[Rfam]
RNA sequence: UGGACAUUUAUUUUUAUUGUUUCUUCUCAAAGUGAAAGUAACUCUUUGUAAAUGUCCUAGAGAAAUGUGGUAGCUUUAUGUUCACACUUUGCAAGUAAAAAGCAUGGAUUGUUCCACUACUGACAUUU
Numbered sequence: 001u002g003g004a005c006a007u008u009u010a011u012u013u014u015u016a017u018u019g020u021u022u023c024u025u026c027u028c029a030a031a032g033u034g035a036a037a038g039u040a041a042c043u044c045u046u047u048g049u050a051a052a053u054g055u056c057c058u059a060g061a062g063a064a065a066u067g068u069g070g071u072a073g074c075u076u077u078a079u080g081u082u083c084a085c086a087c088u089u090u091g092c093a094a095g096u097a098a099a100a101a102g103c104a105u106g107g108a109u110u111g112u113u114c115c116a117c118u119a120c121u122g123a124c125a126u127u128u
Base pairs, nucleotide, nucleotide: 002057003056004055005054006053007052008051009050010049011048019042020041021040022038024036025035026034068122069121070120071119072118073117087102088101089100090099
Small Cajal body specific RNA 24: a 128-nucleotide RNA from Callithrix jacchus. Rfam's curators write: scaRNAs are a specific class of small nuclear RNAs which localise to the Cajal bodies and guide the modification of RNA polymerase II transcribed spliceosomal RNAs U1, U2, U4, U5 and U12. By type it is a small Cajal body RNA. The family is grouped with related families in Rfam's "SCARNA3 clan".